RNA sequence: AAUUUUUAUACAUAAGACACCCCGUUAAUUUAGUUUAUUGGUAUUUAUUAAAUUAUACGAAAGGGCCUUAUUUUUUAAGUAUUUCAAUGUAAAAUUACAUAUAAACACAAAGUAUUUUGGUGAGACUCUUGAGGGAACAGGACAAGUUGAAGACUAUAGGCUGAAGUUGUCCGCUAAGAAACCAAGCCAACAAUACAAAGUAUUAUAAAUAAAAAGCCAG
Numbered sequence: 001a002a003u004u005u006u007u008a009u010a011c012a013u014a015a016g017a018c019a020c021c022c023c024g025u026u027a028a029u030u031u032a033g034u035u036u037a038u039u040g041g042u043a044u045u046u047a048u049u050a051a052a053u054u055a056u057a058c059g060a061a062a063g064g065g066c067c068u069u070a071u072u073u074u075u076u077a078a079g080u081a082u083u084u085c086a087a088u089g090u091a092a093a094a095u096u097a098c099a100u101a102u103a104a105a106c107a108c109a110a111a112g113u114a115u116u117u118u119g120g121u122g123a124g125a126c127u128c129u130u131g132a133g134g135g136a137a138c139a140g141g142a143c144a145a146g147u148u149g150a151a152g153a154c155u156a157u158a159g160g161c162u163g164a165a166g167u168u169g170u171c172c173g174c175u176a177a178g179a180a181a182c183c184a185a186g187c188c189a190a191c192a193a194u195a196c197a198a199a200g201u202a203u204u205a206u207a208a209a210u211a212a213a214a215a216g217c218c219a220g
Stems, first nucleotide, its partner, number of pairs: 005209005023040002026037003041066002044063003048060002050054001080202005089098003100109001102107001112196005117190005127179004132175002135172001137170002140167001145162004